[Rfam]
RNA sequence: AUGGAAAUGAUGAUUAUUUCUCCAAAUAAUGGAGGCUGAAAUAACUCAGCAAACUAUAUCUCUAUACUACACAGAGACACCGAACUAACUAUGUUUGAUCCAU
Numbered sequence: 001a002u003g004g005a006a007a008u009g010a011u012g013a014u015u016a017u018u019u020c021u022c023c024a025a026a027u028a029a030u031g032g033a034g035g036c037u038g039a040a041a042u043a044a045c046u047c048a049g050c051a052a053a054c055u056a057u058a059u060c061u062c063u064a065u066a067c068u069a070c071a072c073a074g075a076g077a078c079a080c081c082g083a084a085c086u087a088a089c090u091a092u093g094u095u096u097g098a099u100c101c102a103u
Stems, first nucleotide, its partner, number of pairs: 001103005
Annotation
The family of this 103-nucleotide sequence from Malus domestica is "Small nucleolar RNA Z103". The family's RNA type in Rfam is C/D-box small nucleolar RNA. Taxonomically the source falls in Malus (Eukaryota, Embryophyta, Amygdaloideae, Maleae). It scores 50 bits against the family's covariance model.